This 209-nucleotide RNA from Poseidonocella pacifica belongs to the Rfam family "permuted transfer-messenger RNA". The match comes from Rfam's covariance-model search (156 bits). By type it is a non-coding RNA gene. Lineage of the source: Bacteria > Pseudomonadati > Alphaproteobacteria > Rhodobacterales > Poseidonocella. Gene Ontology term of the family: RNA catabolic process.
[Rfam]
RNA sequence: GGACAUAAACGCGCUCAUAAUAAGCGGAUCGGACCCGGGGGCGGUACCCGGCGGCUCCACCAUACAUCCUUCGUUUGAGGAUCUUGGGGCCGAAAUAGGAUCGACGAACGUGUAAAAGAGUUGUUUUGUCUCGGUGAGGUACCACCGUUAUCGGUCCGAAAAGUACAAUUGCAAACGACAAUCGUGCUCCGGUUGCAGUCGCUGCGUAA
Numbered sequence: 001g002g003a004c005a006u007a008a009a010c011g012c013g014c015u016c017a018u019a020a021u022a023a024g025c026g027g028a029u030c031g032g033a034c035c036c037g038g039g040g041g042c043g044g045u046a047c048c049c050g051g052c053g054g055c056u057c058c059a060c061c062a063u064a065c066a067u068c069c070u071u072c073g074u075u076u077g078a079g080g081a082u083c084u085u086g087g088g089g090c091c092g093a094a095a096u097a098g099g100a101u102c103g104a105c106g107a108a109c110g111u112g113u114a115a116a117a118g119a120g121u122u123g124u125u126u127u128g129u130c131u132c133g134g135u136g137a138g139g140u141a142c143c144a145c146c147g148u149u150a151u152c153g154g155u156c157c158g159a160a161a162a163g164u165a166c167a168a169u170u171g172c173a174a175a176c177g178a179c180a181a182u183c184g185u186g187c188u189c190c191g192g193u194u195g196c197a198g199u200c201g202c203u204g205c206g207u208a209a
Stems, first nucleotide, its partner, number of pairs: 001131005013121004025110002029107003035051005052092007132147004
Bacterial tmRNA, also known as 10Sa RNA or SsrA, is named for its dual tRNA and mRNA-like properties. Its role is to liberate the mRNA from a stalled ribosome.